[Rfam]
Shown here is a 118-nucleotide sequence from Streptomyces sp. CC53, a member of the family "Streptomyces-metK RNA".
It scores 116 bits against the family's covariance model.
The family's consensus secondary structure is taken from published work.

RNA sequence: GCGAGACACCUGGUCCCAUGACCGGGCCCGACCGAUAAACUGUCCACGGAACGACGCGGGGCGCAGCCCCCUGCCGGUCCGUCAAUGAUCAGCCAGCAGCCGCUGCAAACCCAGGGAG
Numbered sequence: 001g002c003g004a005g006a007c008a009c010c011u012g013g014u015c016c017c018a019u020g021a022c023c024g025g026g027c028c029c030g031a032c033c034g035a036u037a038a039a040c041u042g043u044c045c046a047c048g049g050a051a052c053g054a055c056g057c058g059g060g061g062c063g064c065a066g067c068c069c070c071c072u073g074c075c076g077g078u079c080c081g082u083c084a085a086u087g088a089u090c091a092g093c094c095a096g097c098a099g100c101c102g103c104u105g106c107a108a109a110c111c112c113a114g115g116g117a118g
Stems, first nucleotide, its partner, number of pairs: 048080003052076002056074001058072004094105004